[Rfam]
RNA: c-di-GMP-I riboswitch aptamer
RNA sequence: UACCGAUAAGGGCCAUCCCUCCUGAAAAGGAGGGAGCGCAAAGUUCCGGUCUAAGGGCAUCGCCUAGGAUCGAGGAACUGCCGGU
Numbered sequence: 001u002a003c004c005g006a007u008a009a010g011g012g013c014c015a016u017c018c019c020u021c022c023u024g025a026a027a028a029g030g031a032g033g034g035a036g037c038g039c040a041a042a043g044u045u046c047c048g049g050u051c052u053a054a055g056g057g058c059a060u061c062g063c064c065u066a067g068g069a070u071c072g073a074g075g076a077a078c079u080g081c082c083g084g085u
Base pairs, nucleotide, nucleotide: 012039013038017034018033019032020031021030022029042079043078044077045076046075047074049070050069051068056064057063058062